The family of this 94-nucleotide RNA from Caldimonas brevitalea is "Glycine riboswitch aptamer". Gene Ontology term of the family: glycine biosynthetic process. The match comes from Rfam's covariance-model search (53 bits).
RNA sequence: GCGGCGCAGUCAGGAGAGAGCUUCCCCGGAAGCCGCCGAAGGCGCAGAGCGGAACCCCGCUCGAACGCUCAGGCAAAAGGACUGACGCUCGUCC
Number, nucleotide and partner (000 for none) at each position: 001g000002c000003g000004g000005c000006g089007c000008a000009g086010u085011c084012a083013g082014g000015a000016g000017a000018g000019a000020g033021c032022u031023u030024c000025c000026c000027c000028g000029g000030a023031a022032g021033c020034c000035g074036c073037c072038g070039a069040a000041g000042g068043c067044g066045c000046a000047g000048a061049g060050c059051g058052g000053a000054a000055c000056c000057c000058c051059g050060c049061u048062c000063g000064a000065a000066c044067g043068c042069u039070c038071a000072g037073g036074c035075a000076a000077a000078a000079g000080g000081a000082c013083u012084g011085a010086c009087g000088c000089u006090c000091g000092u000093c000094c000